[Rfam]
RNA sequence: AAAAGCGCGCAGUUAACUUGAAAAAGUGAUUCUAAAAAAAGCGGGGUGACGUGUCUAAACGUCAUCCCGC
Numbered sequence: 001a002a003a004a005g006c007g008c009g010c011a012g013u014u015a016a017c018u019u020g021a022a023a024a025a026g027u028g029a030u031u032c033u034a035a036a037a038a039a040a041g042c043g044g045g046g047u048g049a050c051g052u053g054u055c056u057a058a059a060c061g062u063c064a065u066c067c068c069g070c
Stems, first nucleotide, its partner, number of pairs: 016027004041070004047064006
Rfam assigns this 70-nucleotide RNA from Pseudomonas sp. GV071 to the family "Pseudomonas sRNA P31".
Taxonomically the source falls in Pseudomonas (Bacteria, Pseudomonadati, Gammaproteobacteria, Pseudomonadaceae).
Pairs were carried over by alignment from the consensus structure, which was predicted with CMfinder.
For this family Rfam cites "Identification of 17 Pseudomonas aeruginosa sRNAs and prediction of sRNA-encoding genes in 10 diverse pathogens using the bioinformatic tool sRNAPredict2" (Livny et al., Nucleic Acids Res, 2006).